The record is a 100-nucleotide RNA from Moniliophthora perniciosa, which matches "tRNA" in Rfam.
Taxonomically the source falls in Moniliophthora perniciosa (Eukaryota, Opisthokonta, Agaricomycetes, Agaricales).
The family has 954 seed sequences and 5,335,975 matches in Rfam 15.1.
The match comes from Rfam's covariance-model search (50 bits).
The family's RNA type in Rfam is transfer RNA.
RNA sequence: UCCAAUGUGGUGUAGUGGCUAACAUUGCUGUCUUUCAUCCGUGAAUUCGCUCUGCGAGUAUGUAACACAGCAGCCCGGGGUUCGAUUCCCCGCAUUGGAA
Numbered sequence: 001u002c003c004a005a006u007g008u009g010g011u012g013u014a015g016u017g018g019c020u021a022a023c024a025u026u027g028c029u030g031u032c033u034u035u036c037a038u039c040c041g042u043g044a045a046u047u048c049g050c051u052c053u054g055c056g057a058g059u060a061u062g063u064a065a066c067a068c069a070g071c072a073g074c075c076c077g078g079g080g081u082u083c084g085a086u087u088c089c090c091c092g093c094a095u096u097g098g099a100a
Stems, first nucleotide, its partner, number of pairs: 001099007010025004027071005076092005